Shown here is a 103-nucleotide RNA from Rosa chinensis, a member of the family "Small nucleolar RNA Z107/R87". A search with the family's covariance model found it, with a score of 84 bits. Its family is annotated with RNA processing and nucleolus in the Gene Ontology. NCBI's taxonomy places the organism under Eukaryota, Streptophytina, eudicotyledons, Rosaceae, Rosa.
[Rfam]
RNA sequence: AAUGGCAGUGAUGACUCAAUAAUUUCAAGCUCAACAGACCGGAAUGCAGGCUUUUCUUUCUAGAGAAAUUUGCGUGUCGACAACCCCGCUGAACUGAGCCAUC
Numbered sequence: 001a002a003u004g005g006c007a008g009u010g011a012u013g014a015c016u017c018a019a020u021a022a023u024u025u026c027a028a029g030c031u032c033a034a035c036a037g038a039c040c041g042g043a044a045u046g047c048a049g050g051c052u053u054u055u056c057u058u059u060c061u062a063g064a065g066a067a068a069u070u071u072g073c074g075u076g077u078c079g080a081c082a083a084c085c086c087c088g089c090u091g092a093a094c095u096g097a098g099c100c101a102u103c
Base pairs, nucleotide, nucleotide: 002102003101004100005099006098